[Rfam]
Rfam assigns this 73-nucleotide RNA sequence from Trypanosoma brucei to the family "Trypanosomatid snoRNA TB6Cs1H4". Rfam links the family to the GO terms nucleolus and RNA processing. For this family Rfam cites "A genome-wide analysis of C/D and H/ACA-like small nucleolar RNAs in Trypanosoma brucei reveals a trypanosome-specific pattern of rRNA modification" (Liang et al., RNA, 2005). The sequence is in the family's curated seed alignment. NCBI's taxonomy places the organism under Eukaryota, Metakinetoplastina, Trypanosomatida, Trypanosoma, Trypanozoon. The family's consensus secondary structure was predicted with WAR.

RNA sequence: CACCUCAUUAUUAAAGGUCCCUUGGCGACUGUACUUAUCGAUGCCGCUCCACAGGAUACCCAUUGAGGUUAGA
Numbered sequence: 001c002a003c004c005u006c007a008u009u010a011u012u013a014a015a016g017g018u019c020c021c022u023u024g025g026c027g028a029c030u031g032u033a034c035u036u037a038u039c040g041a042u043g044c045c046g047c048u049c050c051a052c053a054g055g056a057u058a059c060c061c062a063u064u065g066a067g068g069u070u071a072g073a
Stems, first nucleotide, its partner, number of pairs: 002069006017057004025047003029043001